[Rfam]
Nucleotides: 344
Base pairs, nucleotide, nucleotide: 001340002339003338004337006335007334008333009332010331011329012290013289014288015287016286017285018284020049021048022047023046024045025044026043028041054327055326056325058324059323060322061321062320063172064171065170066169070221071220072219073218075168076167077166078165079164080094081093082092083091084090095109096107097106098105099104110163111162115161116160117157118156119155131145132144133142134141135140176245177244178243179242186236187235188234189233190232191231212226213225214224215223216222253273254272255271256270258269259268260267261266
Number, partner (000 for none) and nucleotide at each position: 001340g002339a003338a004337g005000c006335c007334c008333g009332c010331c011329a012290g013289a014288c015287c016286g017285u018284c019000g020049c021048u022047g023046g024045c025044g026043c027000a028041u029000c030000g031000g032000c033000c034000c035000g036000c037000a038000a039000g040000g041028g042000c043026g044025c045024g046023c047022u048021g049020g050000a051000g052000g053000a054327a055326c056325g057000u058324c059323c060322g061321g062320a063172c064171u065170g066169c067000a068000c069000a070221g071220g072219g073218c074000a075168g076167c077166g078165u079164a080094g081093g082092a083091g084090g085000u086000a087000a088000c089000g090084c091083c092082u093081c094080u095109c096107c097106a098105c099104c100000g101000u102000g103000a104099g105098g106097u107096g108000a109095g110163g111162a112000u113000c114000a115161g116160a117157g118156c119155c120000a121000c122000a123000g124000a125000g126000a127000c128000g129000a130000g131145c132144c133142g134141g135140u136000u137000c138000a139000g140135a141134c142133c143000g144132g145131g146000g147000u148000g149000a150000a151000a152000c153000g154000c155119g156118g157117c158000a159000a160116u161115c162111u163110c164079u165078a166077c167076g168075c169066g170065c171064a172063g173000c174000a175000a176245c177244a178243c179242c180000a181000a182000a183000u184000a185000g186236g187235c188234c189233g190232a191231u192000c193000u194000g195000g196000g197000g198000g199000c200000c201000c202000u203000c204000g205000c206000c207000c208000c209000c210000u211000g212226c213225c214224c215223g216222u217000g218073g219072c220071c221070c222216g223215c224214g225213g226212g227000u228000c229000g230000u231191g232190u233189c234188g235187g236186u237000g238000g239000g240000u241000a242179g243178g244177u245176g246000g247000c248000a249000c250000c251000g252000a253273g254272c255271c256270g257000a258269c259268c260267g261266g262000g263000u264000g265000a266261c267260c268259g269258g270256c271255g272254g273253c274000c275000c276000a277000g278000a279000g280000g281000a282000a283000u284018g285017a286016c287015g288014g289013u290012c291000a292000c293000g294000c295000c296000g297000g298000g299000g300000c301000u302000u303000g304000c305000c306000c307000c308000c309000g310000g311000c312000g313000c314000a315000c316000a317000g318000a319000a320062u321061c322060c323059g324058g325056c326055g327054u328000a329011u330000c331010g332009g333008c334007g335006g336000a337004c338003u339002u340001c341000a342000c343000c344000u
Bacterial RNase P class A: a 344-nucleotide RNA sequence from Tepidimonas charontis. Ribonuclease P (RNase P) is a ubiquitous endoribonuclease, found in archaea, bacteria and eukarya as well as chloroplasts and mitochondria. Taxonomically the source falls in Tepidimonas (Bacteria, Pseudomonadati, Pseudomonadota, Burkholderiales).